[Rfam]
RNA sequence: CACAGGACGCUAGUUGUGAACAAGGUGCGAAGAGCCUACUGAGCUACUAGAGAGUCCUCCGGCCCCUGAAUGCGGCUAAUCCCAACCACGGAGCGGGUGCUCACAAGCCAGUGAGUUGCCUGUCGUAAGGCGUAAGUCUGUGGCGGAACCGACUACUUUGGGUGUCCGUGUUUCUAUUUAUCUCAUAUAUGGCUGCUUAUGGUGACAAUCAUUGAUUGUUAUCAUAAAGCGAGUUGGAUUGGCCAUCCGGUG
Numbered sequence: 001c002a003c004a005g006g007a008c009g010c011u012a013g014u015u016g017u018g019a020a021c022a023a024g025g026u027g028c029g030a031a032g033a034g035c036c037u038a039c040u041g042a043g044c045u046a047c048u049a050g051a052g053a054g055u056c057c058u059c060c061g062g063c064c065c066c067u068g069a070a071u072g073c074g075g076c077u078a079a080u081c082c083c084a085a086c087c088a089c090g091g092a093g094c095g096g097g098u099g100c101u102c103a104c105a106a107g108c109c110a111g112u113g114a115g116u117u118g119c120c121u122g123u124c125g126u127a128a129g130g131c132g133u134a135a136g137u138c139u140g141u142g143g144c145g146g147a148a149c150c151g152a153c154u155a156c157u158u159u160g161g162g163u164g165u166c167c168g169u170g171u172u173u174c175u176a177u178u179u180a181u182c183u184c185a186u187a188u189a190u191g192g193c194u195g196c197u198u199a200u201g202g203u204g205a206c207a208a209u210c211a212u213u214g215a216u217u218g219u220u221a222u223c224a225u226a227a228a229g230c231g232a233g234u235u236g237g238a239u240u241g242g243c244c245a246u247c248c249g250g251u252g
Base pairs, nucleotide, nucleotide: 005011006010020026021025034196035195042194043193044192045191046190050183060168061167062166064162065161066160073151074150075149080147081146082145086143087142088141089140090139091138092137094122095121096120097119099116100115101114102113103112104111124130198226199225200224201223202222203221204220205219206218207217208216209215210214
The family of this 252-nucleotide RNA sequence from Enterovirus coxsackiepol is "Picornavirus internal ribosome entry site (IRES)". Taxonomically the source falls in Enterovirus C (Viruses, Picornavirales, Picornaviridae, Ensavirinae). On this family, see Liu et al., Virology 1999: "Structural and functional analysis of the 5' untranslated region of coxsackievirus B3 RNA: In vivo translational and infectivity studies of full-length mutants". Rfam links the family to the GO term ribosome binding. The base pairs follow the family's consensus structure, which was predicted with PFOLD. Rfam's curators write: This family represents the Picornavirus internal ribosome entry site (IRES). IRES elements allow cap and end-independent translation of mRNA in the host cell.